[Rfam]
RNA sequence: CCGUAACGCACUUCUUGGGCGUUUCCUCCCUAGACUCGGGCCGGGGCCUUUGCCCCGGCCUUUUUUUGUGCGCGG
Numbered sequence: 001c002c003g004u005a006a007c008g009c010a011c012u013u014c015u016u017g018g019g020c021g022u023u024u025c026c027u028c029c030c031u032a033g034a035c036u037c038g039g040g041c042c043g044g045g046g047c048c049u050u051u052g053c054c055c056c057g058g059c060c061u062u063u064u065u066u067u068g069u070g071c072g073c074g075g
Base pairs, nucleotide, nucleotide: 008020009019011017039060040059041058042057043056044055045054046053047052
A member of the RNA family "Makes More Granules Regulator RNA (mmgR)" from Azospirillum sp. TSH58, 75 nucleotides long.
For this family Rfam cites "Evidence for a second class of S-adenosylmethionine riboswitches and other regulatory RNA motifs in alpha-proteobacteria" (Corbino et al., Genome Biol, 2005).
By type it is a small RNA.
Rfam 15.1 lists 1,791 matches to the family in 918 species.
From the family's description: SuhB later renamed mmgR (makes more granules regulator) was a putative non-coding RNA found multiple times in the Agrobacterium tumefaciens genome and related alpha-proteobacteria. Other non-coding RNAs uncovered in the same analysis include: speF, ybhL, metA, and serC.Several studies inSinorhizobium meliloti showed that suhB element is indeed a non-coding RNA:firstly it was detected on Northern blot and called Sm8RNA, secondly in an RNAseq study referred to as SmelC689.The mutant phenotype's (strain lacking the small RNA) cytoplasm contains higher content of polyhydroxybutyrate (PBH)storage granules than wild type strain.